Rfam assigns this 86-nucleotide RNA sequence from Gymnodraco acuticeps to the family "mir-204 microRNA precursor family". The base pairs follow the family's consensus structure, which was predicted with RNAalifold. On this family, see Murchison et al., Genome Res 2008: "Conservation of small RNA pathways in platypus". The organism belongs to Gymnodraco, within Eukaryota.
RNA sequence: AUGUGACCAGUGGGUUUCCCUUUGACAUCCUAUGCCUGAAGCUGUGUAAGGCAGGGACAGCAAAGGGAGGCCCAGCCGUCACUACC
Number, nucleotide and partner (000 for none) at each position: 001a000002u000003g000004u000005g000006a000007c000008c000009a000010g000011u000012g000013g000014g000015u000016u000017u068018c067019c066020c065021u064022u063023u000024g061025a000026c000027a000028u057029c056030c055031u054032a000033u000034g052035c051036c050037u049038g000039a000040a000041g000042c000043u000044g000045u000046g000047u000048a000049a037050g036051g035052c034053a000054g031055g030056g029057a028058c000059a000060g000061c024062a000063a022064a021065g020066g019067g018068a017069g000070g000071c000072c000073c000074a000075g000076c000077c000078g000079u000080c000081a000082c000083u000084a000085c000086c000